Source information
Rfam assigns this 111-nucleotide RNA to the family "DUF3800-I RNA". It is one of the family's seed sequences. It is annotated as a small RNA. The family's consensus secondary structure is taken from published work.
RNA sequence: UAUAGGUGCAGGCAGAGAUGCACUGUAUACCUGUGAAACCGAAUUAGCGUUUAAGCGACAUGUAAUGUCGUCGGACACAGGGAGCCGCUCUUGGGCGGCUUUUUUCAUACA
Numbered sequence: 001u002a003u004a005g006g007u008g009c010a011g012g013c014a015g016a017g018a019u020g021c022a023c024u025g026u027a028u029a030c031c032u033g034u035g036a037a038a039c040c041g042a043a044u045u046a047g048c049g050u051u052u053a054a055g056c057g058a059c060a061u062g063u064a065a066u067g068u069c070g071u072c073g074g075a076c077a078c079a080g081g082g083a084g085c086c087g088c089u090c091u092u093g094g095g096c097g098g099c100u101u102u103u104u105u106c107a108u109a110c111a
Stems, first nucleotide, its partner, number of pairs: 007027005012021003030081006039074003042051003055071006082101008